RNA sequence: GGCGAGUUACCCAAGUGGCCAAAGGGAUCUGACUGUAAAUCAGCCGUCUACGACUUCGGGGGUUCGAAUCCCUCACUCGCCA
Numbered sequence: 001g002g003c004g005a006g007u008u009a010c011c012c013a014a015g016u017g018g019c020c021a022a023a024g025g026g027a028u029c030u031g032a033c034u035g036u037a038a039a040u041c042a043g044c045c046g047u048c049u050a051c052g053a054c055u056u057c058g059g060g061g062g063u064u065c066g067a068a069u070c071c072c073u074c075a076c077u078c079g080c081c082a
Stems, first nucleotide, its partner, number of pairs: 001081007010026003029043004058074005

tRNA: an 82-nucleotide RNA sequence from Protaetiibacter intestinalis.